[Rfam]
RNA sequence: GUCCAGCCCUCCCAGAGAGGAUUCAGGUCUUUCGAAUU
Numbered sequence: 001g002u003c004c005a006g007c008c009c010u011c012c013c014a015g016a017g018a019g020g021a022u023u024c025a026g027g028u029c030u031u032u033c034g035a036a037u038u
Base pairs, nucleotide, nucleotide: 015033016032017031018030019029020028
Annotation:
CRISPR RNA direct repeat element: a 38-nucleotide RNA sequence from Herpetosiphon aurantiacus.